[Rfam]
RNA sequence: GUUGCAGUUCCUGGAAUAAAGUUGACUGUGUAGCCUAUGCGUAGGCUAGACUUUGGUAUUAACUGCAAAGUCAGCAACUUGAUUCCAGCAAUUGCGGCUC
Number, nucleotide and partner (000 for none) at each position: 001g098002u097003u096004g095005c094006a093007g092008u091009u090010c000011c088012u087013g086014g085015a084016a083017u082018a000019a080020a079021g078022u077023u076024g075025a000026c074027u073028g072029u067030g066031u000032a000033g000034c000035c000036u000037a000038u000039g000040c000041g000042u000043a000044g000045g000046c000047u000048a000049g000050a000051c000052u000053u000054u000055g000056g000057u000058a000059u000060u000061a000062a000063c000064u000065g000066c030067a029068a000069a000070g000071u000072c028073a027074g026075c024076a023077a022078c021079u020080u019081g000082a017083u016084u015085c014086c013087a012088g011089c000090a009091a008092u007093u006094g005095c004096g003097g002098c001099u000100c000
A member of the RNA family "mir-284 microRNA precursor family" from Drosophila busckii, 100 nucleotides long.
Taxonomically the source falls in Dorsilopha (Eukaryota, Panarthropoda, Dicondylia, Drosophila).
A search with the family's covariance model found it, with a score of 81 bits.
The family's consensus secondary structure was predicted with RNAalifold.
For this family Rfam cites "Systematic discovery and characterization of fly microRNAs using 12 Drosophila genomes" (Stark et al., Genome Res, 2007).